This 101-nucleotide RNA from Sporomusa ovata belongs to the Rfam family "TPP riboswitch aptamer (THI element)". Vitamin B(1) in its active form thiamin pyrophosphate (TPP) is an essential coenzyme that is synthesised by coupling of pyrimidine and thiazole moieties in bacteria. The match comes from Rfam's covariance-model search (76 bits). The family's consensus secondary structure is taken from published work. Gene Ontology term of the family: thiamine pyrophosphate binding.

RNA sequence: AGUUAUAGCUAGGGGUGCCAGAUGUGGCUGAGAGGAAUUCAAUUCCAACCCUCGAACCUGAUGUGGUUAAUACCACCGUAGGAAAGCUUUAUACCAAACGA
Numbered sequence: 001a002g003u004u005a006u007a008g009c010u011a012g013g014g015g016u017g018c019c020a021g022a023u024g025u026g027g028c029u030g031a032g033a034g035g036a037a038u039u040c041a042a043u044u045c046c047a048a049c050c051c052u053c054g055a056a057c058c059u060g061a062u063g064u065g066g067u068u069a070a071u072a073c074c075a076c077c078g079u080a081g082g083a084a085a086g087c088u089u090u091a092u093a094c095c096a097a098a099c100g101a
Base pairs, nucleotide, nucleotide: 007088008087009086010085011052012051013050014049017028018027019026020025035045036044037043038042057082058081059080060079063076064075065074066073